[Rfam]
RNA: Plastid-rps18 3UTR RNA
RNA sequence: UGCAAGUACUUUACGAUUUAGAAGCAACUAUUUCUUGUACACAUUGUGUAUUAAUGU
Number, nucleotide and partner (000 for none) at each position: 001u000002g000003c000004a000005a000006g000007u000008a000009c000010u000011u000012u000013a000014c000015g000016a000017u000018u037019u000020a035021g034022a033023a032024g031025c000026a000027a000028c000029u000030a000031u024032u023033u022034c021035u020036u000037g018038u000039a000040c000041a000042c000043a000044u000045u000046g000047u000048g000049u000050a000051u000052u000053a000054a000055u000056g000057u000